This 84-nucleotide RNA from Nannospalax galili belongs to the Rfam family "mir-489 microRNA precursor family". Pairs were carried over by alignment from the consensus structure, which was predicted with RNAalifold.
RNA sequence: GUGGCAGCUUGGUAAUCAUAUAUGAGGUGUCACUUGCUAGAAACAUUCAGAGUGACAUCACAUAUGUGGUGGCUAAACUGCUAC
Numbered sequence: 001g002u003g004g005c006a007g008c009u010u011g012g013u014a015a016u017c018a019u020a021u022a023u024g025a026g027g028u029g030u031c032a033c034u035u036g037c038u039a040g041a042a043a044c045a046u047u048c049a050g051a052g053u054g055a056c057a058u059c060a061c062a063u064a065u066g067u068g069g070u071g072g073c074u075a076a077a078c079u080g081c082u083a084c
Base pairs, nucleotide, nucleotide: 002083003082004081005080006079007078015070016069017068018067019066020065021064022063024061026059027058029056031054032053033052037050038049
For this family Rfam cites "MicroRNA transcriptome in the newborn mouse ovaries determined by massive parallel sequencing" (Ahn et al., Mol Hum Reprod, 2010). Gene Ontology terms of the family: RISC complex and miRNA-mediated post-transcriptional gene silencing.